[Rfam]
RNA sequence: CACAUUGUGCAAAGUGGCAGUAUUGUAGCCCAUGAGGUUUAUCCGAGGCCCGAUUAUGGCUAGUUGAAAACUUCCCAGUACCCUGCCAUGAUGAUUUAAAAUAUAGUUGGCAGGGACAAUUUUUGCAGUCUGUUUUGAAACUG
Numbered sequence: 001c002a003c004a005u006u007g008u009g010c011a012a013a014g015u016g017g018c019a020g021u022a023u024u025g026u027a028g029c030c031c032a033u034g035a036g037g038u039u040u041a042u043c044c045g046a047g048g049c050c051c052g053a054u055u056a057u058g059g060c061u062a063g064u065u066g067a068a069a070a071c072u073u074c075c076c077a078g079u080a081c082c083c084u085g086c087c088a089u090g091a092u093g094a095u096u097u098a099a100a101a102u103a104u105a106g107u108u109g110g111c112a113g114g115g116a117c118a119a120u121u122u123u124u125g126c127a128g129u130c131u132g133u134u135u136u137g138a139a140a141c142u143g
Base pairs, nucleotide, nucleotide: 022054023053024052025051028049029048030047036044037043085117087115089112090111092109093108094107095106096105130143132141133140
Overview:
U4 spliceosomal RNA: a 143-nucleotide RNA sequence from Aotus nancymaae. It scores 72 bits against the family's covariance model. From the family's description: U4 small nuclear RNA (U4 snRNA) is a component of the major U2-dependent spliceosome. The family has 177 seed sequences and 32,178 matches in Rfam 15.1. By type it is a spliceosomal small nuclear RNA. NCBI's taxonomy places the organism under Eukaryota, Euteleostomi, Tetrapoda, Amniota, Aotus.